[Rfam]
RNA sequence: ACCUUAUUGAGAGUGGUGGAGUGAAUGGGCACGAUGAAACCCGGCAACCUGUAAGUGGUGCUAAAUCCCACGGAUAAUUCCGGAAGAUAAGGA
Numbered sequence: 001a002c003c004u005u006a007u008u009g010a011g012a013g014u015g016g017u018g019g020a021g022u023g024a025a026u027g028g029g030c031a032c033g034a035u036g037a038a039a040c041c042c043g044g045c046a047a048c049c050u051g052u053a054a055g056u057g058g059u060g061c062u063a064a065a066u067c068c069c070a071c072g073g074a075u076a077a078u079u080c081c082g083g084a085a086g087a088u089a090a091g092g093a
Stems, first nucleotide, its partner, number of pairs: 002092007013042001015041003021032003026070004043062004048058002050054001066085001071082004